Shown here is a 107-nucleotide RNA sequence from Apium graveolens, a member of the family "Plant small nucleolar RNA R71".
It scores 53 bits against the family's covariance model.
Rfam links the family to the GO terms RNA processing and nucleolus.
The organism belongs to Apium, within Eukaryota.
A reference for the family is Brown et al. (2003), "Plant snoRNAs: functional evolution and new modes of gene expression", Trends Plant Sci.

[Rfam]
RNA sequence: AUGCCAUGCUGUGGGCACUUCCUUAGCAUCUCGUUAUAUCGAUCCCAAGCCUUACACAGAGAUUCUCCAGUUUGCUAUGCAAACUGAGUAAGAUCAUUCCUGAUUGC
Numbered sequence: 001a002u003g004c005c006a007u008g009c010u011g012u013g014g015g016c017a018c019u020u021c022c023u024u025a026g027c028a029u030c031u032c033g034u035u036a037u038a039u040c041g042a043u044c045c046c047a048a049g050c051c052u053u054a055c056a057c058a059g060a061g062a063u064u065c066u067c068c069a070g071u072u073u074g075c076u077a078u079g080c081a082a083a084c085u086g087a088g089u090a091a092g093a094u095c096a097u098u099c100c101u102g103a104u105u106g107c
Stems, first nucleotide, its partner, number of pairs: 003105001005102002057074002060071001